[Rfam]
RNA sequence: GUUUCACGAAACUAGGGUUCCGGCUUUCCCAGGGAAAGUGACUGGUCCGAGAGUUUCGGGCCCUGCCAGCAGGGUUCCACGGAGGGAUAAAAGCCCGGGAGGU
Numbered sequence: 001g002u003u004u005c006a007c008g009a010a011a012c013u014a015g016g017g018u019u020c021c022g023g024c025u026u027u028c029c030c031a032g033g034g035a036a037a038g039u040g041a042c043u044g045g046u047c048c049g050a051g052a053g054u055u056u057c058g059g060g061c062c063c064u065g066c067c068a069g070c071a072g073g074g075u076u077c078c079a080c081g082g083a084g085g086g087a088u089a090a091a092a093g094c095c096c097g098g099g100a101g102g103u
Base pairs, nucleotide, nucleotide: 007058008057009056010055011054012053015048016047020045021044022042023039024038025037026036027035028034059076060075061074062073063072064071065070078098080101084096085095086094
RNA: Guanidine-I riboswitch aptamer